ZMP/ZTP riboswitch aptamer (pfl RNA motif): an 82-nucleotide sequence from [Clostridium] cellulosi. It scores 63 bits against the family's covariance model.
RNA sequence: UAGAAACCGUAUGACUGACGGAAGUGGAAUUUACCACAUGGAGUACGGUUUUAUAGAUUUGCCGACCGUCUGGGCGUAAAGA
Numbered sequence: 001u002a003g004a005a006a007c008c009g010u011a012u013g014a015c016u017g018a019c020g021g022a023a024g025u026g027g028a029a030u031u032u033a034c035c036a037c038a039u040g041g042a043g044u045a046c047g048g049u050u051u052u053a054u055a056g057a058u059u060u061g062c063c064g065a066c067c068g069u070c071u072g073g074g075c076g077u078a079a080a081g082a
Stems, first nucleotide, its partner, number of pairs: 003052010015040001017070005024037004060076004